This 98-nucleotide RNA from Ruminobacter amylophilus belongs to the Rfam family "Bacterial small signal recognition particle RNA". On this family, see Rosenblad et al., Nucleic Acids Res 2003: "SRPDB: Signal Recognition Particle Database". Its family is annotated with SRP-dependent cotranslational protein targeting to membrane, signal sequence recognition and signal recognition particle, plasma membrane targeting in the Gene Ontology. The organism belongs to Ruminobacter, within Bacteria. A search with the family's covariance model found it, with a score of 63 bits.
RNA sequence: GUUUGGUUCUCUCGUAUUCCAUGUCUGCGUACCCGGCCAGGUCCGGAAGGAAGCAACCAGCGUGGAAUUUUGGAAGUACCGAGAUGCAGCUAGGCCCC
Numbered sequence: 001g002u003u004u005g006g007u008u009c010u011c012u013c014g015u016a017u018u019c020c021a022u023g024u025c026u027g028c029g030u031a032c033c034c035g036g037c038c039a040g041g042u043c044c045g046g047a048a049g050g051a052a053g054c055a056a057c058c059a060g061c062g063u064g065g066a067a068u069u070u071u072g073g074a075a076g077u078a079c080c081g082a083g084a085u086g087c088a089g090c091u092a093g094g095c096c097c098c
Base pairs, nucleotide, nucleotide: 004092005091006090007089008088010084011083012082013081014080015076017075018074019073020072021071024066025065026064027063028062029061033060035058036057042051043050044049